Background: The record is a 370-nucleotide sequence, which matches "transfer-messenger RNA" in Rfam. The family's consensus secondary structure is taken from published work. The match comes from Rfam's covariance-model search (136 bits). Rfam classes the family as a non-coding RNA gene. On this family, see Laslett et al., Nucleic Acids Res 2002: "BRUCE: a program for the detection of transfer-messenger RNA genes in nucleotide sequences".
RNA sequence: GGGGCUGUUAGGUAUUGACGGCAAUUGUGCGAAUAGGUAAGCAUGUCGAGUAUUGUGCAAUUUUGACUCGUAAAACAUAAAGCAUACAAAUUUUUUAUACGGCGAGAAUACUUUCGCUCUAGCUGCCUAAUAUUAGAUAUUAGCAACGCUAGUGUUCAACAAAACGUUUGCUUAUUACGUUUCGUUUGAGCAUCAUCAUAAUAAGAUAGUUUGUUGAUGUUUCUAAGACAAAUGAGAUAAUAGAAACUAAGCUAUAGAUUUGGUCUGUAACAACGCCAAUUUAUAGAUGAAAAACAAGUUGAUACUACACAUGUAGAAAGCUUAUUGGUGCCUUGUCCGGACCUGAGUUCGAUUCUCAGCAGCUCCACUA
Numbered sequence: 001g002g003g004g005c006u007g008u009u010a011g012g013u014a015u016u017g018a019c020g021g022c023a024a025u026u027g028u029g030c031g032a033a034u035a036g037g038u039a040a041g042c043a044u045g046u047c048g049a050g051u052a053u054u055g056u057g058c059a060a061u062u063u064u065g066a067c068u069c070g071u072a073a074a075a076c077a078u079a080a081a082g083c084a085u086a087c088a089a090a091u092u093u094u095u096u097a098u099a100c101g102g103c104g105a106g107a108a109u110a111c112u113u114u115c116g117c118u119c120u121a122g123c124u125g126c127c128u129a130a131u132a133u134u135a136g137a138u139a140u141u142a143g144c145a146a147c148g149c150u151a152g153u154g155u156u157c158a159a160c161a162a163a164a165c166g167u168u169u170g171c172u173u174a175u176u177a178c179g180u181u182u183c184g185u186u187u188g189a190g191c192a193u194c195a196u197c198a199u200a201a202u203a204a205g206a207u208a209g210u211u212u213g214u215u216g217a218u219g220u221u222u223c224u225a226a227g228a229c230a231a232a233u234g235a236g237a238u239a240a241u242a243g244a245a246a247c248u249a250a251g252c253u254a255u256a257g258a259u260u261u262g263g264u265c266u267g268u269a270a271c272a273a274c275g276c277c278a279a280u281u282u283a284u285a286g287a288u289g290a291a292a293a294a295c296a297a298g299u300u301g302a303u304a305c306u307a308c309a310c311a312u313g314u315a316g317a318a319a320g321c322u323u324a325u326u327g328g329u330g331c332c333u334u335g336u337c338c339g340g341a342c343c344u345g346a347g348u349u350c351g352a353u354u355c356u357c358a359g360c361a362g363c364u365c366c367a368c369u370a
Stems, first nucleotide, its partner, number of pairs: 001366007019339003024334001027331002030328001032326007042313005047070005054086005124145003153192006159185002162182001164180004171205006209233007219247005250288001252286008262277003267305003272300003343359005